This 179-nucleotide RNA from Pasteurellaceae bacterium 15-036681 belongs to the Rfam family "GcvB RNA".
A search with the family's covariance model found it, with a score of 106 bits.
The organism belongs to Pasteurellaceae, within Bacteria.
For this family Rfam cites "The gcvB gene encodes a small untranslated RNA involved in expression of the dipeptide and oligopeptide transport systems in Escherichia coli" (Urbanowski et al., Mol Microbiol, 2000).
It is annotated as a non-coding RNA gene.
Rfam describes the family as follows. The gcvB gene encodes a small untranslated RNA involved in expression of the dipeptide and oligopeptide transport systems in Escherichia coli.
RNA sequence: CCGUACUUAGAUGGAUAGUGAUAGUUGUUUAUACAACUAUUUUGAAUUUUAAGUAUGAUGUUGUGUUUGCAUAUUGGUCUAGGAAACUAGACUAGAGUAACGUAAGUUACUCGUUUCACUUCCUGUAUAUUUUGAACCCUUUUUGGUUUAUACGCCGCCCACUUUGGGCGGUUUUUUUA
Numbered sequence: 001c002c003g004u005a006c007u008u009a010g011a012u013g014g015a016u017a018g019u020g021a022u023a024g025u026u027g028u029u030u031a032u033a034c035a036a037c038u039a040u041u042u043u044g045a046a047u048u049u050u051a052a053g054u055a056u057g058a059u060g061u062u063g064u065g066u067u068u069g070c071a072u073a074u075u076g077g078u079c080u081a082g083g084a085a086a087c088u089a090g091a092c093u094a095g096a097g098u099a100a101c102g103u104a105a106g107u108u109a110c111u112c113g114u115u116u117c118a119c120u121u122c123c124u125g126u127a128u129a130u131u132u133u134g135a136a137c138c139c140u141u142u143u144u145g146g147u148u149u150a151u152a153c154g155c156c157g158c159c160c161a162c163u164u165u166g167g168g169c170g171g172u173u174u175u176u177u178u179a
Stems, first nucleotide, its partner, number of pairs: 009049004016044001021040008075094008096111006128152003154172007